A member of the RNA family "Small nucleolar RNA snoR26" from Capsicum baccatum, 90 nucleotides long. The source organism's lineage runs through Eukaryota, Streptophytina, Spermatophyta, Mesangiospermae and Capsicum. The literature on the family includes a 2001 paper in RNA by Brown et al., "Multiple snoRNA gene clusters from Arabidopsis".
[Rfam]
RNA sequence: AAGGCAUCAAUGAUGAAUAAUCCAAUUUGUUAUCCUUGCCCUUUGAUUGUUGAAUGAAGAUAAUAAUGGGGGAACAUUUCUGAGAUGCUU
Numbered sequence: 001a002a003g004g005c006a007u008c009a010a011u012g013a014u015g016a017a018u019a020a021u022c023c024a025a026u027u028u029g030u031u032a033u034c035c036u037u038g039c040c041c042u043u044u045g046a047u048u049g050u051u052g053a054a055u056g057a058a059g060a061u062a063a064u065a066a067u068g069g070g071g072g073a074a075c076a077u078u079u080c081u082g083a084g085a086u087g088c089u090u
Stems, first nucleotide, its partner, number of pairs: 002090007